[Rfam]
RNA sequence: AUAAGAGCGAUAAGGGCGCCCAUAAGGUCGCCCACUUGUUUCUCUGCUUAACAAUUUUGGUUUGGCCGCCGAUCAGUUAAGUAGAGUGCAGAACUGGCGUUACGCAUAGCUGGCUGUUAGCUAGGUUCCUUACUAUUUCACUACUAACAGUUUUUGUAACCAAAACCCGGCAUAGUCCCGGGUUUUUUUAU
Numbered sequence: 001a002u003a004a005g006a007g008c009g010a011u012a013a014g015g016g017c018g019c020c021c022a023u024a025a026g027g028u029c030g031c032c033c034a035c036u037u038g039u040u041u042c043u044c045u046g047c048u049u050a051a052c053a054a055u056u057u058u059g060g061u062u063u064g065g066c067c068g069c070c071g072a073u074c075a076g077u078u079a080a081g082u083a084g085a086g087u088g089c090a091g092a093a094c095u096g097g098c099g100u101u102a103c104g105c106a107u108a109g110c111u112g113g114c115u116g117u118u119a120g121c122u123a124g125g126u127u128c129c130u131u132a133c134u135a136u137u138u139c140a141c142u143a144c145u146a147a148c149a150g151u152u153u154u155u156g157u158a159a160c161c162a163a164a165a166c167c168c169g170g171c172a173u174a175g176u177c178c179c180g181g182g183u184u185u186u187u188u189u190a191u
Stems, first nucleotide, its partner, number of pairs: 014033005020027002039090001040086001044084009057072005099160006112152009164184007
The record is a 191-nucleotide sequence from Vibrio galatheae, which matches "MicX Vibrio cholerae sRNA" in Rfam.
The source organism's lineage runs through Bacteria, Pseudomonadota, Gammaproteobacteria, Vibrionaceae and Vibrio.